[Rfam]
RNA sequence: AGUGAGGAUAGAGGUGCGGACUUCAAUAGUACAUUCCUGGAGAAGAAUGGACUUCUGAGAAGGGGAUGGAAAGGGGAGGACCGCCGAAAGAAAAAAUAGUCCACUUCUAUUUUUUCUUGGUUCUGUCAUUGAAUAAAUGCGGAACUGUCAAGAAUGAGUCGUUCUUGGAGAGCUAUCUCGCUG
Numbered sequence: 001a002g003u004g005a006g007g008a009u010a011g012a013g014g015u016g017c018g019g020a021c022u023u024c025a026a027u028a029g030u031a032c033a034u035u036c037c038u039g040g041a042g043a044a045g046a047a048u049g050g051a052c053u054u055c056u057g058a059g060a061a062g063g064g065g066a067u068g069g070a071a072a073g074g075g076g077a078g079g080a081c082c083g084c085c086g087a088a089a090g091a092a093a094a095a096a097u098a099g100u101c102c103a104c105u106u107c108u109a110u111u112u113u114u115u116c117u118u119g120g121u122u123c124u125g126u127c128a129u130u131g132a133a134u135a136a137a138u139g140c141g142g143a144a145c146u147g148u149c150a151a152g153a154a155u156g157a158g159u160c161g162u163u164c165u166u167g168g169a170g171a172g173c174u175a176u177c178u179c180g181c182u183g
Base pairs, nucleotide, nucleotide: 006178007177008176009175010174011173016084017083018082019081021079022077023076024075032068033067034066035065036064037063038062088118089117090116091115092114093113094112095111096110097109098108099107119146120145121144122143123142124141125140127139128138129137130136148168149167150166151165152164153163154162
About this RNA:
This 183-nucleotide sequence from Fervidibacillus halotolerans belongs to the Rfam family "Lysine riboswitch aptamer". Taxonomically the source falls in Fervidibacillus (Bacteria, Bacillati, Bacilli, Bacillaceae). Gene Ontology term of the family: lysine biosynthetic process.